[Rfam]
RNA sequence: GAACUCCCACACGGUAAGGUCCAGCAAACCACUGUUAGCGAGUCUUGAGCGACGUCCGGUAACAGCCGUUGUUAAGCGUAGACAGUCAGGAUGCAGGGUUGCAAUGCUUAUAAGCUCCGAAAUUUUACAGGGUCUCAAAGGCCGACGCAGUUCAUCCAUGCGGAAGGCAACAUCGCGUUACGCGAUAAUGCGAGUGUAACGCGGCUUUGGCGGGGUCUCAGAGCC
Numbered sequence: 001g002a003a004c005u006c007c008c009a010c011a012c013g014g015u016a017a018g019g020u021c022c023a024g025c026a027a028a029c030c031a032c033u034g035u036u037a038g039c040g041a042g043u044c045u046u047g048a049g050c051g052a053c054g055u056c057c058g059g060u061a062a063c064a065g066c067c068g069u070u071g072u073u074a075a076g077c078g079u080a081g082a083c084a085g086u087c088a089g090g091a092u093g094c095a096g097g098g099u100u101g102c103a104a105u106g107c108u109u110a111u112a113a114g115c116u117c118c119g120a121a122a123u124u125u126u127a128c129a130g131g132g133u134c135u136c137a138a139a140g141g142c143c144g145a146c147g148c149a150g151u152u153c154a155u156c157c158a159u160g161c162g163g164a165a166g167g168c169a170a171c172a173u174c175g176c177g178u179u180a181c182g183c184g185a186u187a188a189u190g191c192g193a194g195u196g197u198a199a200c201g202c203g204g205c206u207u208u209g210g211c212g213g214g215g216u217c218u219c220a221g222a223g224c225c
Base pairs, nucleotide, nucleotide: 011035012034013033014032018030019029020028024191025190038086039085042083043082044081045080046078047077048073049072050071051070052069053068054067056065058063114216115215116214117213118212119211135210136209137208138207139206140205141168142167143166146162147161148160149159173204174203175202176201177200178199179198180197181196182195183194
A member of the RNA family "Group II catalytic intron D1-D4-6" from Acetatifactor muris, 225 nucleotides long. The match comes from Rfam's covariance-model search (154 bits). Its family is annotated with Group II intron splicing in the Gene Ontology.